Source information:
This 130-nucleotide sequence from Pteropus alecto belongs to the Rfam family "Small nucleolar RNA SNORA31". By type it is an H/ACA-box small nucleolar RNA. Rfam 15.1 lists 2,094 matches to the family in 626 species. Rfam's curators write: ACA31 (SNORA31) belongs to the H/ACA class of snoRNAs which are thought to guide the sites of modification of uridines to pseudouridines. ACA31 is predicted to guide the pseudouridylation of U3713 in 28S rRNA and U218 in 18S rRNA. This family includes the mouse homologue snoMBI-161. The match comes from Rfam's covariance-model search (47 bits). On this family, see Huttenhofer et al., EMBO J 2001: "RNomics: an experimental approach that identifies 201 candidates for novel, small, non-messenger RNAs in mouse".
RNA sequence: AAGCAUCUCUGACAGACCUGGAGCAGUUCCCGUCUGCUGCUGAGGUUCCGGUGCAGAUGCAAGAGGAAAGGGUCCCCGCGCUUUCCGUCUGUCGAUGGUGGCAGUCGAGAUUGAAUGGGGGAGCACAGGG
Numbered sequence: 001a002a003g004c005a006u007c008u009c010u011g012a013c014a015g016a017c018c019u020g021g022a023g024c025a026g027u028u029c030c031c032g033u034c035u036g037c038u039g040c041u042g043a044g045g046u047u048c049c050g051g052u053g054c055a056g057a058u059g060c061a062a063g064a065g066g067a068a069a070g071g072g073u074c075c076c077c078g079c080g081c082u083u084u085c086c087g088u089c090u091g092u093c094g095a096u097g098g099u100g101g102c103a104g105u106c107g108a109g110a111u112u113g114a115a116u117g118g119g120g121g122a123g124c125a126c127a128g129g130g
Stems, first nucleotide, its partner, number of pairs: 003060006010051001015047004022038005073122005081113001084110002089104005
Dot-bracket structure: ..((((((.(....((((...(((((.......))))).....))))...)...))))))............(((((...(..((...(((((......)))))....))..)....)))))........
Its family is annotated with RNA processing and nucleolus in the Gene Ontology.
NCBI's taxonomy places the organism under Eukaryota, Dipnotetrapodomorpha, Theria, Pteropodinae, Pteropus.